[Rfam]
RNA sequence: GGAUUGAUGAUGAUACCCCAAAAUCAUUCCUUGGAAAAGCUGAACAAAAUGAGUGAGAACUCCAAACUGUCGUUCUCAUCGUGACUGAGGUCU
Numbered sequence: 001g002g003a004u005u006g007a008u009g010a011u012g013a014u015a016c017c018c019c020a021a022a023a024u025c026a027u028u029c030c031u032u033g034g035a036a037a038a039g040c041u042g043a044a045c046a047a048a049a050u051g052a053g054u055g056a057g058a059a060c061u062c063c064a065a066a067c068u069g070u071c072g073u074u075c076u077c078a079u080c081g082u083g084a085c086u087g088a089g090g091u092c093u
Stems, first nucleotide, its partner, number of pairs: 001093005025055005031047003
This 93-nucleotide sequence from Heterocephalus glaber belongs to the Rfam family "Small nucleolar RNA SNORD116".
Gene Ontology terms of the family: nucleolus and RNA processing.
The organism belongs to Heterocephalus, within Eukaryota.
On this family, see Cavaille et al., Proc Natl Acad Sci U S A 2000: "Identification of brain-specific and imprinted small nucleolar RNA genes exhibiting an unusual genomic organization".